RNA: MIR1435 microRNA precursor family
Organism: Sorghum bicolor
RNA sequence: UGGCUUUGUUCUCAGUUAAACUUAUCUAACUUUUGAUCAAGUUUCUAGAAAAAAUAUAUUAGCAUCUACAACUUCAAAUAAAUGCACUUUCAAAUUAUAUUCCAUGUAAACUUUGAUGAAACAAAUUUGAUAUUGUAGAUGUUUUUGUGUUUUCUACAAACUUGGUCAAAGUUAAAGAAGUUUGACUUAGAACAAACCCAA
Numbered sequence: 001u002g003g004c005u006u007u008g009u010u011c012u013c014a015g016u017u018a019a020a021c022u023u024a025u026c027u028a029a030c031u032u033u034u035g036a037u038c039a040a041g042u043u044u045c046u047a048g049a050a051a052a053a054a055u056a057u058a059u060u061a062g063c064a065u066c067u068a069c070a071a072c073u074u075c076a077a078a079u080a081a082a083u084g085c086a087c088u089u090u091c092a093a094a095u096u097a098u099a100u101u102c103c104a105u106g107u108a109a110a111c112u113u114u115g116a117u118g119a120a121a122c123a124a125a126u127u128u129g130a131u132a133u134u135g136u137a138g139a140u141g142u143u144u145u146u147g148u149g150u151u152u153u154c155u156a157c158a159a160a161c162u163u164g165g166u167c168a169a170a171g172u173u174a175a176a177g178a179a180g181u182u183u184g185a186c187u188u189a190g191a192a193c194a195a196a197c198c199c200a201a
Base pairs, nucleotide, nucleotide: 005196006195007194008193009192011190012189014187015186016185017184018183019182020181021180022179023178025176032170033169034168035167036166046156047155048154049153050152051151052150057147058146061143062142063141064140065139066138067137068136069135070134074130075129076128077127078126079125